[Rfam]
RNA: THF (Tetrahydrofolate) riboswitch aptamer
Organism: Enterocloster bolteae
RNA sequence: GCAGAGUAGGUAUAUGUGCGUUAAGUGCCGGCUGGACAGGGAGUUGUCAGCUGGACGAAAGAGGAUUCCCAAAGGGAAACUGUCUGCGGUACAUAUGCCGCAUCCCGCUGC
Numbered sequence: 001g002c003a004g005a006g007u008a009g010g011u012a013u014a015u016g017u018g019c020g021u022u023a024a025g026u027g028c029c030g031g032c033u034g035g036a037c038a039g040g041g042a043g044u045u046g047u048c049a050g051c052u053g054g055a056c057g058a059a060a061g062a063g064g065a066u067u068c069c070c071a072a073a074g075g076g077a078a079a080c081u082g083u084c085u086g087c088g089g090u091a092c093a094u095a096u097g098c099c100g101c102a103u104c105c106c107g108c109u110g111c
Base pairs, nucleotide, nucleotide: 001111002110003109004108009099010098011097012096013095014094015093016092017091018090019088020087021086025056026055028054029053030052031051032050033049034048035047039105040104041103043101060085061084062083